[Rfam]
RNA sequence: UGUUUUCAAGCUGUUUAAAACAAAAAUAUGCUGAAAAAUGUUGAAAUUAUUAAAAUGAUUUUCAUUUUUUGAUAGCUGUUGACAGAAGAAGAACCACCAUUUUCUGAAAAAUAGUGGUUUCGUUU
Numbered sequence: 001u002g003u004u005u006u007c008a009a010g011c012u013g014u015u016u017a018a019a020a021c022a023a024a025a026a027u028a029u030g031c032u033g034a035a036a037a038a039u040g041u042u043g044a045a046a047u048u049a050u051u052a053a054a055a056u057g058a059u060u061u062u063c064a065u066u067u068u069u070u071g072a073u074a075g076c077u078g079u080u081g082a083c084a085g086a087a088g089a090a091g092a093a094c095c096a097c098c099a100u101u102u103u104c105u106g107a108a109a110a111a112u113a114g115u116g117g118u119u120u121c122g123u124u125u
Stems, first nucleotide, its partner, number of pairs: 001084004009077007033070008043062008091120007099112005

The family of this 125-nucleotide sequence from Streptococcus pyogenes is "Streptococcus sRNA 34". By type it is a small RNA. For this family Rfam cites "Novel regulatory small RNAs in Streptococcus pyogenes" (Tesorero et al., PLoS One, 2013). Pairs were carried over by alignment from the consensus structure, which was predicted with RNAfold. The source organism's lineage runs through Bacteria, Bacillati, Bacilli, Streptococcus pyogenes and Streptococcus pyogenes serotype M12.